The family of this 308-nucleotide part of an RNA from Saccharomyces mikatae is "Saccharomyces telomerase". Clan: Telomerase clan. The family's consensus secondary structure is taken from published work. By type it is a non-coding RNA gene.
[Rfam]
RNA sequence: AAGGACGAACCUUCCUCAAGCACUGAAUGUUUUGCGAGUGAAUGGUAAGCGCGAGAAAUGAUGAUACAAGUUGAAAAGACAUAAUUUGAGAUUUUUCAAAAUAGAUUAUUUUAGACAUCCUACUUUAAUCAUUUUUGAUGAAUCAAUACGGUAUUUUUGUCGCUUCCUUAUUACAGUAAUGCAGACAUUAACUUCUGAGCGGAAGGAACCGUGUGUUCAGUUUAUGGAUUUUCGUGUAAAGCGUUUUUUCGGUUGCGAUAGCAGUUACUUACUUUCCUCGAUGCCUUUGAUGCAUUCAGAUAAUUUUU
Dot-bracket structure: ...................(((.(((......................................(...(..((......(((((..((((.............................................(((....)))(((((((.(((((((......................................)))))))..))))))).))))..)))))......))..)...)...........((((....))))......................))).)))...............
Numbered sequence: 001a002a003g004g005a006c007g008a009a010c011c012u013u014c015c016u017c018a019a020g021c022a023c024u025g026a027a028u029g030u031u032u033u034g035c036g037a038g039u040g041a042a043u044g045g046u047a048a049g050c051g052c053g054a055g056a057a058a059u060g061a062u063g064a065u066a067c068a069a070g071u072u073g074a075a076a077a078g079a080c081a082u083a084a085u086u087u088g089a090g091a092u093u094u095u096u097c098a099a100a101a102u103a104g105a106u107u108a109u110u111u112u113a114g115a116c117a118u119c120c121u122a123c124u125u126u127a128a129u130c131a132u133u134u135u136u137g138a139u140g141a142a143u144c145a146a147u148a149c150g151g152u153a154u155u156u157u158u159g160u161c162g163c164u165u166c167c168u169u170a171u172u173a174c175a176g177u178a179a180u181g182c183a184g185a186c187a188u189u190a191a192c193u194u195c196u197g198a199g200c201g202g203a204a205g206g207a208a209c210c211g212u213g214u215g216u217u218c219a220g221u222u223u224a225u226g227g228a229u230u231u232u233c234g235u236g237u238a239a240a241g242c243g244u245u246u247u248u249u250c251g252g253u254u255g256c257g258a259u260a261g262c263a264g265u266u267a268c269u270u271a272c273u274u275u276c277c278u279c280g281a282u283g284c285c286u287u288u289g290a291u292g293c294a295u296u297c298a299g300a301u302a303a304u305u306u307u308u
Stems, first nucleotide, its partner, number of pairs: 020293003024289003065241001069237001072234002080226005087219004136145003146214007154205007253264004